[Rfam]
RNA sequence: CUCUUAUCCAGAGUGGCGGAGGGACUGGCCCUAUGAAGCCCGGCAACCGCCGGCCGUGCCGUCGCGGCCGGUAAGGUGCCAACUCCUGCAGGAUCCGGACGGGUCCUGAGAGAUGAGAG
Numbered sequence: 001c002u003c004u005u006a007u008c009c010a011g012a013g014u015g016g017c018g019g020a021g022g023g024a025c026u027g028g029c030c031c032u033a034u035g036a037a038g039c040c041c042g043g044c045a046a047c048c049g050c051c052g053g054c055c056g057u058g059c060c061g062u063c064g065c066g067g068c069c070g071g072u073a074a075g076g077u078g079c080c081a082a083c084u085c086c087u088g089c090a091g092g093a094u095c096c097g098g099a100c101g102g103g104u105c106c107u108g109a110g111a112g113a114u115g116a117g118a119g
Base pairs, nucleotide, nucleotide: 001119002118003117004116005115006114007113008112013041015040016039017038021031022030023029025088027086028085042080043079044078045077047076048075049072050071051070052069053068054067055066056065084111089108090107091106092105093104094103
Shown here is a 119-nucleotide sequence from Thermaerobacter marianensis, a member of the family "SAM riboswitch aptamer (S box leader)".
It scores 92 bits against the family's covariance model.
About the family: The SAM riboswitch is found upstream of a number of genes which code for proteins involved in methionine or cysteine biosynthesis in Gram-positive bacteria.